Notes:
A member of the RNA family "Mammalian CPEB3 ribozyme" from Alligator mississippiensis, 77 nucleotides long. The match comes from Rfam's covariance-model search (54 bits). The family's consensus secondary structure is taken from published work.
[Rfam]
RNA sequence: GGUCAUAAAUUUGAGGCCACAGCAGAAGCACUUAUGGUGUGGCCCUGUCAGAUUACAACAAAUCUGUGAAUUCUGCU
Dot-bracket structure: ............[.[[[[..((((((((((.......)))]]]]]...((((((......))))))....)))))))